[Rfam]
RNA sequence: GUAUGGGUCACCGCAAGGUUUCUGGGCAUUUGCCCCAGACAAUACAUGCGUGGCCCGCCCCGCGGUCCACGAUCGGCUACGCCGAAAGCAUCAACACGCCGGUAACGAUACCGGC
Numbered sequence: 001g002u003a004u005g006g007g008u009c010a011c012c013g014c015a016a017g018g019u020u021u022c023u024g025g026g027c028a029u030u031u032g033c034c035c036c037a038g039a040c041a042a043u044a045c046a047u048g049c050g051u052g053g054c055c056c057g058c059c060c061c062g063c064g065g066u067c068c069a070c071g072a073u074c075g076g077c078u079a080c081g082c083c084g085a086a087a088g089c090a091u092c093a094a095c096a097c098g099c100c101g102g103u104a105a106c107g108a109u110a111c112c113g114g115c
Stems, first nucleotide, its partner, number of pairs: 010019003021039006049071005055065003073085004098115006
Notes: Pseudomon-groES RNA: a 115-nucleotide RNA sequence from Pseudomonas sp. 1239. By type it is a cis-regulatory element. NCBI's taxonomy places the organism under Bacteria, Pseudomonadati, Pseudomonadales, Pseudomonadaceae, Pseudomonas. The match comes from Rfam's covariance-model search (86 bits).